[Rfam]
RNA sequence: GAACUCCUGCUUGGUAAGACUCUAACCAAGUCGCCAAUAGCGAGUCUUGGACUCACGGGGGUAACCGACGUGGGUUAAGCGUAGACAGCCAGGUAGUAGGCCUGAAAGUGAUUGAGCCCCGAAAUUAGUUCAAAUUUAGAGAGGCCGACAGUGUCGGACAACUGGAAGGCAAUAUCUUAUGUUACCGAUAUGGUGAGGAACAUAAAACUCUCUCGGGGUCGAAGAGCC
Numbered sequence: 001g002a003a004c005u006c007c008u009g010c011u012u013g014g015u016a017a018g019a020c021u022c023u024a025a026c027c028a029a030g031u032c033g034c035c036a037a038u039a040g041c042g043a044g045u046c047u048u049g050g051a052c053u054c055a056c057g058g059g060g061g062u063a064a065c066c067g068a069c070g071u072g073g074g075u076u077a078a079g080c081g082u083a084g085a086c087a088g089c090c091a092g093g094u095a096g097u098a099g100g101c102c103u104g105a106a107a108g109u110g111a112u113u114g115a116g117c118c119c120c121g122a123a124a125u126u127a128g129u130u131c132a133a134a135u136u137u138a139g140a141g142a143g144g145c146c147g148a149c150a151g152u153g154u155c156g157g158a159c160a161a162c163u164g165g166a167a168g169g170c171a172a173u174a175u176c177u178u179a180u181g182u183u184a185c186c187g188a189u190a191u192g193g194u195g196a197g198g199a200a201c202a203u204a205a206a207a208c209u210c211u212c213u214c215g216g217g218g219u220c221g222a223a224g225a226g227c228c
Base pairs, nucleotide, nucleotide: 012036013035014034015033019031020030021029023196025194026193038091040089041088044086045085046084047083048081049080050076051075052074053073054072055071056070057069059066060065113222114220116219117218118217119216120215121214138213139212140211141210142209143208144170145169146168149164150163151162152161175207177205178204179203180202181201182200183199185198186197
Group II catalytic intron D1-D4-6: a 228-nucleotide sequence from Anaerobacillus alkaliphilus. A search with the family's covariance model found it, with a score of 147 bits. Lineage of the source: Bacteria > Bacillota > Bacilli > Bacillaceae > Anaerobacillus. About the family: Group II introns are found in rRNA, tRNA and mRNA of organelles in fungi, plants and protists, and also in mRNA in bacteria. Rfam 15.1 lists 1,617 matches to the family in 661 species. Pairs were carried over by alignment from the consensus structure.